[Rfam]
RNA sequence: AAAUACGAAGGCGAUGGAGUUCGCCUGAACCGCGCCUCCCGGUUCUGCUUUGAUGAGGCGCUGAUGACUCCUACGACUAU
Numbered sequence: 001a002a003a004u005a006c007g008a009a010g011g012c013g014a015u016g017g018a019g020u021u022c023g024c025c026u027g028a029a030c031c032g033c034g035c036c037u038c039c040c041g042g043u044u045c046u047g048c049u050u051u052g053a054u055g056a057g058g059c060g061c062u063g064a065u066g067a068c069u070c071c072u073a074c075g076a077c078u079a080u
Stems, first nucleotide, its partner, number of pairs: 010025004016071006032061007
Rfam assigns this 80-nucleotide sequence from Silvibacterium dinghuense to the family "Fluoride riboswitch aptamer (crcB RNA motif)".